Notes
The record is a 94-nucleotide RNA sequence from Kangiella sp. HZ709, which matches "t44 RNA" in Rfam. The literature on the family includes a 2002 paper in Nucleic Acids Res by Tjaden et al., "Transcriptome analysis of Escherichia coli using high-density oligonucleotide probe arrays". The family's consensus secondary structure was predicted with LocARNA. Taxonomically the source falls in Kangiella (Bacteria, Pseudomonadati, Pseudomonadota, Kangiellales). Rfam describes the family as follows. This family consists of a number of bacterial RNA genes of between 135 and 170 bases in length. The t44 gene has been identified in several species of enteric bacteria but homologs have also been identified in Pseudomonas and Coxiella species.
RNA sequence: AAGAUUGCUUAAAUAAAACACACACAAAUCGUCACAUUGGUCGGGGUGCAAAUCGUAAGAUUUGUCGGCUUAAUGGGGUUUGUGGAGGCUUAAC
Numbered sequence: 001a002a003g004a005u006u007g008c009u010u011a012a013a014u015a016a017a018a019c020a021c022a023c024a025c026a027a028a029u030c031g032u033c034a035c036a037u038u039g040g041u042c043g044g045g046g047u048g049c050a051a052a053u054c055g056u057a058a059g060a061u062u063u064g065u066c067g068g069c070u071u072a073a074u075g076g077g078g079u080u081u082g083u084g085g086a087g088g089c090u091u092a093a094c
Base pairs, nucleotide, nucleotide: 023084024083025082026081027080028079029078030077035075036074037073038072039071040069041068042067043066048065049064050063051062052061